The record is a 376-nucleotide RNA from Goekera deserti, which matches "transfer-messenger RNA" in Rfam. Rfam's curators write: Bacterial tmRNA, also known as 10Sa RNA or SsrA, is named for its dual tRNA and mRNA-like properties. Its role is to liberate the mRNA from a stalled ribosome. Its Rfam clan is "tRNA clan". For this family Rfam cites "The tmRNA Website: invasion by an intron" (Williams, Nucleic Acids Res, 2002).
[Rfam]
RNA sequence: GGGGGUGAUUGGUCUCGACUUCGGUCGUGAGGCCAGGGGAAGCGAGCCGAGGAAGCCAACGAUGAUCUCGUUAACCAUCCGUUGGAAAAAAAUCAAGCGCCGAUUCCAAUCAGCGCGACUUCGCUCUCGCUGCCUAACAGCAGCUAGGCGAGUCUGUCAGCCCGGGUUCGCCUUCGACCCGGUUCCUGGCAUCAGCUAGGAGGCUCACCGUGCGGAUCGGUCGCGGAUCCGCACGGGACAUCGCACAGCGACUGGGCCCGUCACACCGGCUCGUCCGUGGGACCGGUGGGGUCGAGCAGAGACAGAGCGGACUGCGCUCGGAGAAGCCCUGGUGUUGCGUCGGAGGACGCGGGUUCGAUUCCCGCCACCUCCACCA
Numbered sequence: 001g002g003g004g005g006u007g008a009u010u011g012g013u014c015u016c017g018a019c020u021u022c023g024g025u026c027g028u029g030a031g032g033c034c035a036g037g038g039g040a041a042g043c044g045a046g047c048c049g050a051g052g053a054a055g056c057c058a059a060c061g062a063u064g065a066u067c068u069c070g071u072u073a074a075c076c077a078u079c080c081g082u083u084g085g086a087a088a089a090a091a092a093u094c095a096a097g098c099g100c101c102g103a104u105u106c107c108a109a110u111c112a113g114c115g116c117g118a119c120u121u122c123g124c125u126c127u128c129g130c131u132g133c134c135u136a137a138c139a140g141c142a143g144c145u146a147g148g149c150g151a152g153u154c155u156g157u158c159a160g161c162c163c164g165g166g167u168u169c170g171c172c173u174u175c176g177a178c179c180c181g182g183u184u185c186c187u188g189g190c191a192u193c194a195g196c197u198a199g200g201a202g203g204c205u206c207a208c209c210g211u212g213c214g215g216a217u218c219g220g221u222c223g224c225g226g227a228u229c230c231g232c233a234c235g236g237g238a239c240a241u242c243g244c245a246c247a248g249c250g251a252c253u254g255g256g257c258c259c260g261u262c263a264c265a266c267c268g269g270c271u272c273g274u275c276c277g278u279g280g281g282a283c284c285g286g287u288g289g290g291g292u293c294g295a296g297c298a299g300a301g302a303c304a305g306a307g308c309g310g311a312c313u314g315c316g317c318u319c320g321g322a323g324a325a326g327c328c329c330u331g332g333u334g335u336u337g338c339g340u341c342g343g344a345g346g347a348c349g350c351g352g353g354u355u356c357g358a359u360u361c362c363c364g365c366c367a368c369c370u371c372c373a374c375c376a
Stems, first nucleotide, its partner, number of pairs: 001372007019345007032333007043320005048070005056085006125148003129144005155191006162182007170204006208236009219253006255293005262288003270281002273312004278306001349365005
Dot-bracket structure: (((((((...........(((((((......(((((((....((((([[[[[...((((((....]]]]].........)))))).......................................(((.(((((......))))).)))......((((((.(((((((.[[[[[[)))))))...)))))).......]]]]]]...(((((((((..[[[[[[...)))))))))...........]]]]]].(((((..(((.....((.[[[[.[.))....))))))))............]..]]]]...)))))......))))))).....)))))))...(((((.......))))))))))))....